Background:
The family of this 60-nucleotide RNA sequence from Carum carvi is "Plastid-psbA-3 3UTR RNA". About the family: Plastid psbA-3 is a non-coding RNA (ncRNA) present in plastids. It was identified in inverted repeat sequences in the 3 prime untranslate region (3UTR) of photosystem II quinone-binding protein (psbA). Rfam classes the family as a cis-regulatory element. The base pairs follow the family's consensus structure, which was predicted with LocARNA. Lineage of the source: Eukaryota > Spermatophyta > asterids > campanulids > Carum.
RNA sequence: AAAAGGAGCAAGACCCCCCUCUUGAUAGAACAAGAAAGAGGUUAUUGCUCCUUUUUUUUU
Dot-bracket structure: .((((((((((.(.(....(((((......))))).....).).))))))))))......